[Rfam]
RNA sequence: UAGUAACACUUAUAGGAACUGUCUGGAGUGCCUACGAAAGUAGGAAUAUGCGCAUUAAACUAAAUCCUUGCGCAGGGUA
Dot-bracket structure: ..............................(((((....)))))....(((((................))))).....
Annotation: RAGATH-12 RNA: a 79-nucleotide RNA sequence. By type it is a small RNA.